[Rfam]
The family of this 100-nucleotide sequence from Oceanimonas doudoroffii is "Purine riboswitch aptamer".
RNA sequence: CUAUCGGCAACGCCGAUGCUUCGUAUAACCUCACUGAUAAGGGGUGAGGGUCUCUACCUGGAGCCGUAAAUUCCAGAUUACGAAGAGAAAGUGCAUGGCG
Numbered sequence: 001c002u003a004u005c006g007g008c009a010a011c012g013c014c015g016a017u018g019c020u021u022c023g024u025a026u027a028a029c030c031u032c033a034c035u036g037a038u039a040a041g042g043g044g045u046g047a048g049g050g051u052c053u054c055u056a057c058c059u060g061g062a063g064c065c066g067u068a069a070a071u072u073c074c075a076g077a078u079u080a081c082g083a084a085g086a087g088a089a090a091g092u093g094c095a096u097g098g099c100g
Stems, first nucleotide, its partner, number of pairs: 019085007029049007058076006
Clan: Purine riboswitches. The organism belongs to Oceanimonas, within Bacteria.